[Rfam]
RNA sequence: CAUUCGUAAGGCGAUGGGGUUCGCCACGGCGCUGGCCGGAACUGCCGCAAGGCUGAUGACUCCUGACGAUUC
Number, nucleotide and partner (000 for none) at each position: 001c000002a000003u000004u000005c000006g000007u000008a000009a000010g025011g024012c023013g022014a000015u000016g063017g062018g061019g060020u059021u058022c013023g012024c011025c010026a000027c000028g000029g000030c000031g000032c000033u000034g000035g000036c000037c000038g000039g000040a000041a000042c000043u000044g053045c052046c051047g000048c000049a000050a000051g046052g045053c044054u000055g000056a000057u000058g021059a020060c019061u018062c017063c016064u000065g000066a000067c000068g000069a000070u000071u000072c000
Rfam assigns this 72-nucleotide RNA from Eoetvoesiella caeni to the family "Fluoride riboswitch aptamer (crcB RNA motif)". For this family Rfam cites "Fluoride ion encapsulation by Mg2+ ions and phosphates in a fluoride riboswitch" (Ren et al., Nature, 2012). The source organism's lineage runs through Bacteria, Pseudomonadati, Pseudomonadota, Betaproteobacteria and Eoetvoesiella.